A member of the RNA family "azaaromatic riboswitch aptamer (yjdF RNA)" from Paenibacillus sambharensis, 112 nucleotides long. A search with the family's covariance model found it, with a score of 86 bits.
RNA sequence: AAGAUGGAGUGUAAAAACACUGCUCGGUCGGUAGUCCGGGCGCACAGGGAAGCUGUCGUUUCUUGUGUCAGUAACCUUCCCCCUCGGGAUGUCCUUCACUCCAAGUAACGCU
Numbered sequence: 001a002a003g004a005u006g007g008a009g010u011g012u013a014a015a016a017a018c019a020c021u022g023c024u025c026g027g028u029c030g031g032u033a034g035u036c037c038g039g040g041c042g043c044a045c046a047g048g049g050a051a052g053c054u055g056u057c058g059u060u061u062c063u064u065g066u067g068u069c070a071g072u073a074a075c076c077u078u079c080c081c082c083c084u085c086g087g088g089a090u091g092u093c094c095u096u097c098a099c100u101c102c103a104a105g106u107a108a109c110g111c112u
Stems, first nucleotide, its partner, number of pairs: 005103007022041006042068010078089004